[Rfam]
RNA sequence: CCAAAGGCCCUUUUCAGGGCCGCCCAACUAUUCAAAGAAAGAGCUGU
Number, nucleotide and partner (000 for none) at each position: 001c000002c000003a000004a000005a000006g021007g020008c019009c018010c017011u016012u000013u000014u000015c000016a011017g010018g009019g008020c007021c006022g000023c000024c000025c000026a000027a000028c000029u000030a000031u000032u000033c000034a000035a000036a000037g000038a000039a000040a000041g000042a000043g000044c000045u000046g000047u000